[Rfam]
RNA sequence: GGUCUUCAUAGCUCAGCAGUUCCUUCGACUGCAUCAUGAUUCAAUUAUCCUUUCAAGGGUGAUUUGAGACCUGUGGGCACUCUCCAGUCCUUUG
Numbered sequence: 001g002g003u004c005u006u007c008a009u010a011g012c013u014c015a016g017c018a019g020u021u022c023c024u025u026c027g028a029c030u031g032c033a034u035c036a037u038g039a040u041u042c043a044a045u046u047a048u049c050c051u052u053u054c055a056a057g058g059g060u061g062a063u064u065u066g067a068g069a070c071c072u073g074u075g076g077g078c079a080c081u082c083u084c085c086a087g088u089c090c091u092u093u094g
Base pairs, nucleotide, nucleotide: 002089004087005086011078012077013076014075016074017073018072019071024068025067026066027065028064
Dot-bracket structure: .(.((.....((((.((((....(((((...................................)))))..)))))))).......)).).....
Source information
This 94-nucleotide RNA from Bos taurus belongs to the Rfam family "Vault RNA". The family's consensus secondary structure is taken from published work. Taxonomically the source falls in Bos (Eukaryota, Metazoa, Deuterostomia, Chordata).